[Rfam]
RNA sequence: AAGAGACUCGGGUUAAUAAAAACUAAGGAGAUUGACUCGAGAAAGGA
Dot-bracket structure: ......((.((((((((.............)))))))).))......

Plastid-rpl16 group II-D1 intron: a 47-nucleotide sequence from Musa balbisiana. Rfam links the family to the GO term Group II intron splicing. A reference for the family is Richter et al. (2023), "Retrograde signaling in plants: A critical review focusing on the GUN pathway and beyond", Plant Commun.